This 74-nucleotide RNA sequence from Psychroflexus salarius belongs to the Rfam family "tRNA".
The base pairs follow the family's consensus structure, which is taken from published work.
Rfam classes the family as a transfer RNA.
The match comes from Rfam's covariance-model search (60 bits).
Lineage of the source: Bacteria > Pseudomonadati > Bacteroidota > Flavobacteriales > Psychroflexus.
Rfam's curators write: Transfer RNA (tRNA) molecules are approximately 80 nucleotides in length.
RNA sequence: GGCCGCGUAGUUCAACUGAAUAGAAUAUCAGAUUUCGGCUCUGAGGGUUGCAGGUUUGAAUCCUGCCGCGGUCA
Numbered sequence: 001g002g003c004c005g006c007g008u009a010g011u012u013c014a015a016c017u018g019a020a021u022a023g024a025a026u027a028u029c030a031g032a033u034u035u036c037g038g039c040u041c042u043g044a045g046g047g048u049u050g051c052a053g054g055u056u057u058g059a060a061u062c063c064u065g066c067c068g069c070g071g072u073c074a
Stems, first nucleotide, its partner, number of pairs: 001073007010026004028044005050066005